A member of the RNA family "MIR4371 microRNA precursor family" from Glycine max, 147 nucleotides long. The family is grouped with related families in Rfam's "MIR4387 microRNA precursor clan". The base pairs follow the family's consensus structure, which was predicted with RNAalifold. A search with the family's covariance model found it, with a score of 123 bits. The organism belongs to Glycine subgen. Soja, within Eukaryota.

RNA sequence: CUGUUAAGUGAUAACAUGACAGACAGAGUGUCACAUCAUCACACCUUGUCACUGACACGUCAUUGAAGUUGUUGAUGAGGCAAUGAAUUGUCUGUGACAAGGCGUGAUGAUGUGACAUUCUAUCUAACAUGUCAUCACUUAACGAAA
Number, nucleotide and partner (000 for none) at each position: 001c000002u144003g143004u142005u141006a140007a139008g138009u137010g136011a135012u134013a000014a132015c131016a130017u129018g128019a000020c000021a125022g124023a123024c000025a121026g120027a119028g118029u117030g116031u115032c114033a113034c112035a111036u110037c109038a108039u107040c106041a105042c104043a000044c102045c101046u100047u000048g098049u097050c096051a095052c094053u000054g092055a091056c090057a089058c000059g076060u075061c074062a073063u000064u000065g000066a000067a000068g000069u000070u000071g000072u000073u062074g061075a060076u059077g000078a000079g000080g000081c000082a000083a000084u000085g000086a000087a000088u000089u057090g056091u055092c054093u000094g052095u051096g050097a049098c048099a000100a046101g045102g044103c000104g042105u041106g040107a039108u038109g037110a036111u035112g034113u033114g032115a031116c030117a029118u028119u027120c026121u025122a000123u023124c022125u021126a000127a000128c018129a017130u016131g015132u014133c000134a012135u011136c010137a009138c008139u007140u006141a005142a004143c003144g002145a000146a000147a000